[Rfam]
RNA sequence: UUGAAGCUCCAGCUACAAAUGGAUAAGACCCCCGUUUUAGUGUAUAUGAAUUGGUGAAAAUAAAGGAGCAAUAACCUCUUUCUUGGUCUCUCAAGAGGUGGGUAUUGCUCCUUUUU
Dot-bracket structure: .......((((........))))......................................((((((((((((...(..(((((........)))))..)..))))))))))))..

A member of the RNA family "Plastid-psbA-1 3UTR RNA" from Eucommia ulmoides, 116 nucleotides long. The sequence is in the family's curated seed alignment. It is annotated as a cis-regulatory element. NCBI's taxonomy places the organism under Eukaryota, Tracheophyta, Gunneridae, Pentapetalae, Eucommia. The base pairs follow the family's consensus structure, which was predicted with LocARNA. On this family, see Richter et al., Plant Commun 2023: "Retrograde signaling in plants: A critical review focusing on the GUN pathway and beyond". Rfam's curators write: Plastid psbA-1 is a non-coding RNA (ncRNA) present in plastids. It was identified in inverted repeat sequences in the 3 prime untranslate region (3UTR) of photosystem II quinone-binding protein (psbA).